[Rfam]
RNA sequence: UUGCAAUGAUGACUUGUGAAUCUGUCAAUCCCCUGAGAGAGUAAUCGUUGAUGUCUCCUUCUCUCUGAGCAA
Numbered sequence: 001u002u003g004c005a006a007u008g009a010u011g012a013c014u015u016g017u018g019a020a021u022c023u024g025u026c027a028a029u030c031c032c033c034u035g036a037g038a039g040a041g042u043a044a045u046c047g048u049u050g051a052u053g054u055c056u057c058c059u060u061c062u063c064u065c066u067g068a069g070c071a072a
Stems, first nucleotide, its partner, number of pairs: 001072004

The family of this 72-nucleotide RNA from Dipodomys ordii is "Small nucleolar RNA SNORD110".
The family is grouped with related families in Rfam's "SNORD110 clan".
NCBI's taxonomy places the organism under Eukaryota, Mammalia, Theria, Boreoeutheria, Dipodomys.
A reference for the family is Galardi et al. (2002), "Purified box C/D snoRNPs are able to reproduce site-specific 2'-O-methylation of target RNA in vitro", Mol Cell Biol.
Gene Ontology terms of the family: nucleolus and RNA processing.
By type it is a C/D-box small nucleolar RNA.
The match comes from Rfam's covariance-model search (80 bits).